[Rfam]
RNA sequence: GUGCGAUGAUAAUUUCCUUACCUACAAAGACCAGCUCCAUGGUUUAAACGUAUUCGUACUGUCUGAGCAC
Numbered sequence: 001g002u003g004c005g006a007u008g009a010u011a012a013u014u015u016c017c018u019u020a021c022c023u024a025c026a027a028a029g030a031c032c033a034g035c036u037c038c039a040u041g042g043u044u045u046a047a048a049c050g051u052a053u054u055c056g057u058a059c060u061g062u063c064u065g066a067g068c069a070c
Stems, first nucleotide, its partner, number of pairs: 001070004
Shown here is a 70-nucleotide RNA sequence from Mesorhabditis belari, a member of the family "Small nucleolar RNA sn2841". Rfam links the family to the GO terms RNA processing and nucleolus. Pairs were carried over by alignment from the consensus structure, which was predicted with WAR. On this family, see Higa et al., Biochem Biophys Res Commun 2002: "Location of 2(')-O-methyl nucleotides in 26S rRNA and methylation guide snoRNAs in Caenorhabditis elegans". By type it is a C/D-box small nucleolar RNA. NCBI's taxonomy places the organism under Eukaryota, Metazoa, Bilateria, Protostomia, Mesorhabditis.